[Rfam]
Microsporidia small subunit ribosomal RNA: a 528-nucleotide part of an RNA from Cyberloma acerinae. The family is grouped with related families in Rfam's "SSU clan". Lineage of the source: Eukaryota > Opisthokonta > Fungi > Glugeidae > Cyberloma. A reference for the family is Cannone et al. (2002), "The comparative RNA web (CRW) site: an online database of comparative sequence and structure information for ribosomal, intron, and other RNAs", BMC Bioinformatics. The family has 46 seed sequences and 1,035 matches in Rfam 15.1.
RNA sequence: UGACGGAAGAACACCACAAGGAGUGGAGUGUGCGGCUUAAUUUGACUCAACGCGGGACAGCUUACCAGUCCCGACGAUCGGAGGAGUGUGUUACACGAUAGGUCGGAGAGUGGUGCAUGGCCGUUAACGACGAGUGGGGUGACCUUUGGGUUAAGUCCGUGAAGUAGUGAGACCCCUGCCGCAAGGGACAGGUGCCGAACGCACAGGAAGGAAGGGUCAAGAACAGGUCAGUGAUGCCCUCAGAUGGGCUGGGCUGCACGCGCACUACAGUGGUCGCAGAAAAGGAAGGAAAGAGAUAAAGGCGAUCGAGAGGGAACGAGCUUUGGAAGAGGCUCGGGAACGAGGAAUUGCUAGUAAUCGCGGGCUCAUUAGGACGCGAUGAAUACGUCCCUGUUCUUUGUACACACCGCCCGUCGUUAUCGAAGAUGGAGUCAGGCGCGAACAAGCGAGAGCGAGUGAGUGCAGGAUUCUAGAUGUGAUACAAGUCGUAACAAGGUAGCUGUAGGAGAACCAGCAGCAGGAUCAUAA
Numbered sequence: 001u002g003a004c005g006g007a008a009g010a011a012c013a014c015c016a017c018a019a020g021g022a023g024u025g026g027a028g029u030g031u032g033c034g035g036c037u038u039a040a041u042u043u044g045a046c047u048c049a050a051c052g053c054g055g056g057a058c059a060g061c062u063u064a065c066c067a068g069u070c071c072c073g074a075c076g077a078u079c080g081g082a083g084g085a086g087u088g089u090g091u092u093a094c095a096c097g098a099u100a101g102g103u104c105g106g107a108g109a110g111u112g113g114u115g116c117a118u119g120g121c122c123g124u125u126a127a128c129g130a131c132g133a134g135u136g137g138g139g140u141g142a143c144c145u146u147u148g149g150g151u152u153a154a155g156u157c158c159g160u161g162a163a164g165u166a167g168u169g170a171g172a173c174c175c176c177u178g179c180c181g182c183a184a185g186g187g188a189c190a191g192g193u194g195c196c197g198a199a200c201g202c203a204c205a206g207g208a209a210g211g212a213a214g215g216g217u218c219a220a221g222a223a224c225a226g227g228u229c230a231g232u233g234a235u236g237c238c239c240u241c242a243g244a245u246g247g248g249c250u251g252g253g254c255u256g257c258a259c260g261c262g263c264a265c266u267a268c269a270g271u272g273g274u275c276g277c278a279g280a281a282a283a284g285g286a287a288g289g290a291a292a293g294a295g296a297u298a299a300a301g302g303c304g305a306u307c308g309a310g311a312g313g314g315a316a317c318g319a320g321c322u323u324u325g326g327a328a329g330a331g332g333c334u335c336g337g338g339a340a341c342g343a344g345g346a347a348u349u350g351c352u353a354g355u356a357a358u359c360g361c362g363g364g365c366u367c368a369u370u371a372g373g374a375c376g377c378g379a380u381g382a383a384u385a386c387g388u389c390c391c392u393g394u395u396c397u398u399u400g401u402a403c404a405c406a407c408c409g410c411c412c413g414u415c416g417u418u419a420u421c422g423a424a425g426a427u428g429g430a431g432u433c434a435g436g437c438g439c440g441a442a443c444a445a446g447c448g449a450g451a452g453c454g455a456g457u458g459a460g461u462g463c464a465g466g467a468u469u470c471u472a473g474a475u476g477u478g479a480u481a482c483a484a485g486u487c488g489u490a491a492c493a494a495g496g497u498a499g500c501u502g503u504a505g506g507a508g509a510a511c512c513a514g515c516a517g518c519a520g521g522a523u524c525a526u527a528a
Stems, first nucleotide, its partner, number of pairs: 001404002003401003007398007016388002020351001022349003025268001027266008035257002041056004065252007075105005086096004109240002112238004118234001119232001120228003123224003130168002133165001135163001136145003149158002174216004179186002189207001192204004272307006312341001317336007357380006409492001412488002415485001418481005424475001427472007436463004442457002446453002497520001499518005505512002